[Rfam]
RNA sequence: AUGCGAAUAUUCUCGCUGUCCUGAUAUUUCUGUGAUCAGGGGAGGCUAGACAUUCGCUAUAGUAACACUAUGCAUUGUGUCCUCCAGGACUAGAUGGUUGUUUUAGUCCUGGCUUUCUAAAUGCUGGUGACAGGU
Dot-bracket structure: ..(((..........((.(((((((.........))))))).))..........))).........((((.((..........((((((((((.........))))))))))..........)))))).......